The family of this 79-nucleotide RNA from Sphingomonas sp. BK345 is "chrB-a RNA". It scores 73 bits against the family's covariance model. By type it is a cis-regulatory element. The family has 163 seed sequences and 347 matches in Rfam 15.1. The base pairs follow the family's consensus structure, which is taken from published work.
RNA sequence: GCCAUGGGGGCUGCGACCUCCCCAUGAGGCGUCAGCCGAAGGUUCGCGUCCAGCAUCAUCCUGCCGAGGACGCACCGUG
Dot-bracket structure: ....((((((........)))))).....................((((((................))))))......